[Rfam]
RNA: Small nucleolar RNA SNORD22
Organism: Cepphus grylle
RNA sequence: CCCCCAUGAGGAAACCCCCGCGCGUCUGACCCCCCCCACCUGCCCCCAGAACCUGCCAAAGGUUGAACCCACUGGUGACGGUGGGGGGGGGCAGGAGGACGCCUCGUCCCGAGUGGACGGUCUGAGGGGG
Number, nucleotide and partner (000 for none) at each position: 001c129002c128003c127004c126005c000006a000007u000008g000009a000010g000011g000012a000013a000014a000015c000016c000017c000018c000019c000020g000021c000022g000023c000024g000025u000026c000027u000028g000029a000030c000031c000032c000033c000034c000035c000036c000037c000038a000039c000040c000041u000042g000043c000044c000045c000046c000047c000048a000049g000050a000051a000052c000053c000054u000055g000056c000057c000058a000059a000060a000061g000062g000063u000064u000065g000066a000067a000068c000069c000070c000071a000072c000073u000074g000075g000076u000077g000078a000079c000080g000081g000082u000083g000084g000085g000086g000087g000088g000089g000090g000091g000092c000093a000094g000095g000096a000097g000098g000099a000100c000101g000102c000103c000104u000105c000106g000107u000108c000109c000110c000111g000112a000113g000114u000115g000116g000117a000118c000119g000120g000121u000122c000123u000124g000125a000126g004127g003128g002129g001130g000